[Rfam]
RNA sequence: ACUAGUCGGUUGUCGAGUAUCCUACCGGGCUUUUCACAAUCGAUCAUUGGAAUUGAGGAGUGCUAUAGUGGCCCGUAUCGCUGGCAUUAACAUUCCUGAG
Numbered sequence: 001a002c003u004a005g006u007c008g009g010u011u012g013u014c015g016a017g018u019a020u021c022c023u024a025c026c027g028g029g030c031u032u033u034u035c036a037c038a039a040u041c042g043a044u045c046a047u048u049g050g051a052a053u054u055g056a057g058g059a060g061u062g063c064u065a066u067a068g069u070g071g072c073c074c075g076u077a078u079c080g081c082u083g084g085c086a087u088u089a090a091c092a093u094u095c096c097u098g099a100g
Stems, first nucleotide, its partner, number of pairs: 005044009021084002026075004034099002
Annotation: A member of the RNA family "Alpha operon ribosome binding site" from Ferrimonas sediminicola, 100 nucleotides long. By type it is a cis-regulatory element. Pairs were carried over by alignment from the consensus structure, which is taken from published work. On this family, see Schlax et al., J Biol Chem 2001: "Translational repression of the Escherichia coli alpha operon mRNA: importance of an mRNA conformational switch and a ternary entrapment complex". The bacterial alpha operon ribosome binding site is surrounded by this complex pseudoknotted structure. Translation of the mRNA produces 4 ribosomal protein products, one of which (S4) acts as a translational repressor by binding to the nested pseudoknot region. The mechanism of repression is thought to involve a conformational switch in the pseudoknot region and ribosome entrapment. The organism belongs to Ferrimonas, within Bacteria.